[Rfam]
Background: This 362-nucleotide part of an RNA from Chlamydia felis belongs to the Rfam family "Bacterial large subunit ribosomal RNA".

RNA sequence: CGAGAUAACUUUCGUUAAGGAACUCGGCAAAUUAUCCCCGUAACUUCGGAAGAAGGGGAGCCUUUUAGGGUGAUUACCUUUACGGUAUGAGCUCCGGAAGGCCGCAGAGAAAUGGCCCAGGCGACUGUUUAACAAAAACACAGCACUAUGCAAACCUCUAAGGGGAAGUAUAUGGUGUGACGCCUGCCCAAUGCCAAAAGGUUAAAGGAAUAUGUCAGCCGCAAGGCAAAGCAUUGAACCCAAGCCCUGGUGAAUGGCCGCCGUAACUAUAACGGUGCUAAGGUAGCGAAAUUCCUUGUCGGGUAAGUUCCGACCUGCACGAAUGGUGUAACGAUCUGGGCACUGUCUCAACGAAAGACUCG
Numbered sequence: 001c002g003a004g005a006u007a008a009c010u011u012u013c014g015u016u017a018a019g020g021a022a023c024u025c026g027g028c029a030a031a032u033u034a035u036c037c038c039c040g041u042a043a044c045u046u047c048g049g050a051a052g053a054a055g056g057g058g059a060g061c062c063u064u065u066u067a068g069g070g071u072g073a074u075u076a077c078c079u080u081u082a083c084g085g086u087a088u089g090a091g092c093u094c095c096g097g098a099a100g101g102c103c104g105c106a107g108a109g110a111a112a113u114g115g116c117c118c119a120g121g122c123g124a125c126u127g128u129u130u131a132a133c134a135a136a137a138a139c140a141c142a143g144c145a146c147u148a149u150g151c152a153a154a155c156c157u158c159u160a161a162g163g164g165g166a167a168g169u170a171u172a173u174g175g176u177g178u179g180a181c182g183c184c185u186g187c188c189c190a191a192u193g194c195c196a197a198a199a200g201g202u203u204a205a206a207g208g209a210a211u212a213u214g215u216c217a218g219c220c221g222c223a224a225g226g227c228a229a230a231g232c233a234u235u236g237a238a239c240c241c242a243a244g245c246c247c248u249g250g251u252g253a254a255u256g257g258c259c260g261c262c263g264u265a266a267c268u269a270u271a272a273c274g275g276u277g278c279u280a281a282g283g284u285a286g287c288g289a290a291a292u293u294c295c296u297u298g299u300c301g302g303g304u305a306a307g308u309u310c311c312g313a314c315c316u317g318c319a320c321g322a323a324u325g326g327u328g329u330a331a332c333g334a335u336c337u338g339g340g341c342a343c344u345g346u347c348u349c350a351a352c353g354a355a356a357g358a359c360u361c362g
Base pairs, nucleotide, nucleotide: 001362002361003360004359009357010356011355012354013353014352015351016350018348019347020346035059036058037057038056039055044049060102061101062100063099064098065097067080068079069078070077071076103107115341116340117339118338119337120336121335122333123332126140127139128138143178144177145176146175147174148173149172150171151168155164156163157162181328182327183326184325186258187257188256191255192254193251194250195249196248200246201245202244207239212234213233214232215231218227219226259277260276261275262274263273264272278282288315298314299313300312301311302310303309
Dot-bracket structure: ((((....((((((((.(((..............(((((....(....).....)))))((((((.(((((....)))))................))))))(...).......(((((((((..(((.........)))..(((((((((...(((....)))...)..))))))))..((((.(((..((((((...(((....(....((((..((......))...))))....)....))).))))..)))))((((((.......))))))(...).....(.........((((((.....))))))).........))))...)).)))))))....))).)))))))).))))

Pairs were carried over by alignment from the consensus structure, which is taken from published work.